A member of the RNA family "Bacterial RNase P class B" from Halobacillus andaensis, 379 nucleotides long. A reference for the family is Frank and Pace (1998), "Ribonuclease P: unity and diversity in a tRNA processing ribozyme", Annu Rev Biochem. A search with the family's covariance model found it, with a score of 324 bits. The family's RNA type in Rfam is ribozyme.
RNA sequence: AUACUCGGGUAAUCGCUGCAUAUUCACGUAUGCAGAGGAAAGUCCAUGCUCGCACAAGCUGAGACGCUUGUAGUGUUCGUGCUUGACGAAACCAUAAGUCAAGGUAACUCUUACGUUAACGGCAGGGAAAAUACCUACGUUCUUUAUGAAUAGGGUAUGACUACCUUGAAAGUGCCACAGUGACGAAGCUGGAAUAGAAAUAUUUCAGGUGGAACGAGGUAAACCCCACGAGCGAGCAACCCAAAUUAAGGUAGGGGCACUUUUGGAUGGGAAUUCAACCUGAAAAAAGGCCGCUUAUAGCGGCAGAUAGAUGGUUACCACCGGAGUACGAGGUUGACCACCGUUUGCAGUACAAAGGAACAGAACAUGGCUUACAGAG
Number, nucleotide and partner (000 for none) at each position: 001a000002u000003a000004c379005u378006c377007g375008g319009g318010u317011a316012a315013u314014c313015g000016c035017u034018g033019c032020a031021u030022a000023u000024u000025c000026a000027c000028g000029u000030a021031u020032g019033c018034a017035g016036a000037g000038g000039a000040a373041a372042g371043u000044c370045c369046a368047u367048g366049c236050u235051c234052g233053c232054a071055c070056a069057a068058g067059c066060u000061g000062a000063g000064a000065c000066g059067c058068u057069u056070g055071u054072a000073g000074u000075g000076u000077u231078c230079g229080u228081g227082c103083u102084u101085g100086a099087c098088g000089a000090a000091a000092c000093c000094a000095u000096a000097a000098g087099u086100c085101a084102a083103g082104g120105u118106a117107a116108c115109u000110c000111u000112u000113a000114c000115g108116u107117u106118a105119a000120c104121g226122g225123c000124a166125g165126g164127g000128a000129a000130a000131a000132u157133a156134c155135c154136u000137a000138c000139g151140u150141u149142c000143u000144u000145u000146a000147u000148g000149a141150a140151u139152a000153g000154g135155g134156u133157a132158u000159g000160a000161c000162u000163a000164c126165c125166u124167u000168g000169a000170a000171a000172g224173u223174g220175c219176c218177a000178c000179a000180g000181u000182g000183a000184c000185g000186a000187a000188g000189c208190u207191g206192g205193a204194a203195u202196a201197g000198a000199a000200a000201u196202a195203u194204u193205u192206c191207a190208g189209g000210u000211g000212g000213a000214a000215c000216g000217a000218g176219g175220u174221a000222a000223a173224c172225c122226c121227c081228a080229c079230g078231a077232g053233c052234g051235a050236g049237c000238a000239a000240c256241c255242c254243a000244a000245a000246u000247u000248a000249a000250g000251g000252u000253a000254g242255g241256g240257g000258c000259a000260c289261u288262u287263u286264u285265g000266g000267a000268u000269g000270g000271g000272a000273a000274u000275u000276c000277a000278a000279c000280c000281u000282g000283a000284a000285a264286a263287a262288a261289g260290g304291c303292c302293g301294c300295u299296u000297a000298u000299a295300g294301c293302g292303g291304c290305a000306g000307a000308u000309a000310g000311a000312u000313g014314g013315u012316u011317a010318c009319c008320a000321c358322c357323g000324g000325a000326g353327u352328a351329c350330g000331a000332g000333g000334u000335u000336g000337a000338c000339c000340a000341c000342c000343g000344u000345u000346u000347g000348c000349a000350g329351u328352a327353c326354a000355a000356a000357g322358g321359a000360a000361c000362a000363g000364a000365a000366c048367a047368u046369g045370g044371c042372u041373u040374a000375c007376a000377g006378a005379g004

Source information
Pairs were carried over by alignment from the consensus structure, which is taken from published work.